The family of this 312-nucleotide sequence from Halostagnicola sp. A56 is "Archaeal signal recognition particle RNA".
Pairs were carried over by alignment from the consensus structure, which is taken from published work.
On this family, see Wild et al., Curr Opin Struct Biol 2002: "Towards the structure of the mammalian signal recognition particle".
Rfam links the family to the GO terms SRP-dependent cotranslational protein targeting to membrane, signal sequence recognition and signal recognition particle, plasma membrane targeting.
The family's RNA type in Rfam is non-coding RNA gene.

RNA sequence: AAGUGGACUAGGUCGGGCAGUUAGGCCCUGCUCAUUACCCGCACUAUGGUCUUUAGCGGGGGCCGAUCCCCAUGGGCGUCCGGUCAGACCGGCCGGGGCCCCGGGAGCCAACAGAGAAGCCUCGUCCGUCGGGGACAGCGGGCCACGCUGGCCGUCCGCAGGGACGUCCCAUCGUGGCUAACCGGCGACAGCCCAUCAGGCGCGGAAGCGAGCAGUGGACCGCCGGACACCUGUCGCUCGACGGGUCGCGGGGUGGAGGAGGCAACCGGGACUCCCCCGAUCGGAACGCCGGGCAACCGUGGCCGUCCACAU
Numbered sequence: 001a002a003g004u005g006g007a008c009u010a011g012g013u014c015g016g017g018c019a020g021u022u023a024g025g026c027c028c029u030g031c032u033c034a035u036u037a038c039c040c041g042c043a044c045u046a047u048g049g050u051c052u053u054u055a056g057c058g059g060g061g062g063c064c065g066a067u068c069c070c071c072a073u074g075g076g077c078g079u080c081c082g083g084u085c086a087g088a089c090c091g092g093c094c095g096g097g098g099c100c101c102c103g104g105g106a107g108c109c110a111a112c113a114g115a116g117a118a119g120c121c122u123c124g125u126c127c128g129u130c131g132g133g134g135a136c137a138g139c140g141g142g143c144c145a146c147g148c149u150g151g152c153c154g155u156c157c158g159c160a161g162g163g164a165c166g167u168c169c170c171a172u173c174g175u176g177g178c179u180a181a182c183c184g185g186c187g188a189c190a191g192c193c194c195a196u197c198a199g200g201c202g203c204g205g206a207a208g209c210g211a212g213c214a215g216u217g218g219a220c221c222g223c224c225g226g227a228c229a230c231c232u233g234u235c236g237c238u239c240g241a242c243g244g245g246u247c248g249c250g251g252g253g254u255g256g257a258g259g260a261g262g263c264a265a266c267c268g269g270g271a272c273u274c275c276c277c278c279g280a281u282c283g284g285a286a287c288g289c290c291g292g293g294c295a296a297c298c299g300u301g302g303c304c305g306u307c308c309a310c311a312u
Stems, first nucleotide, its partner, number of pairs: 001312001003310006011064004015033006038060005070302006078294004082289001089284004094279005100270005107263003112258001119254007126244008134235005140228001141179007149171002151168001153166005182226006193218004201210003